Annotation
This 96-nucleotide RNA from Miscanthus lutarioriparius belongs to the Rfam family "Small nucleolar RNA Z119". A search with the family's covariance model found it, with a score of 95 bits. The base pairs follow the family's consensus structure, which was predicted with PFOLD. It is annotated as a C/D-box small nucleolar RNA. The organism belongs to Miscanthus, within Eukaryota. For this family Rfam cites "The high diversity of snoRNAs in plants: identification and comparative study of 120 snoRNA genes from Oryza sativa" (Chen et al., Nucleic Acids Res, 2003).
Nucleotides: 096
Base pairs, nucleotide, nucleotide: 003094004093005092006091007090042054043053044052045051065081066080067079068078
Number, partner (000 for none) and nucleotide at each position: 001000u002000u003094u004093u005092g006091g007090a008000g009000a010000u011000g012000a013000u014000g015000a016000u017000u018000g019000u020000u021000a022000u023000c024000a025000g026000a027000g028000g029000c030000u031000g032000u033000u034000u035000c036000u037000g038000a039000g040000g041000c042054g043053a044052g045051c046000c047000a048000a049000g050000a051045g052044c053043u054042c055000u056000c057000c058000c059000u060000g061000u062000c063000c064000u065081g066080c067079a068078a069000a070000a071000g072000a073000a074000c075000u076000g077000a078068u079067u080066g081065c082000c083000g084000u085000c086000a087000u088000g089000a090007u091006c092005c093004a094003a095000a096000g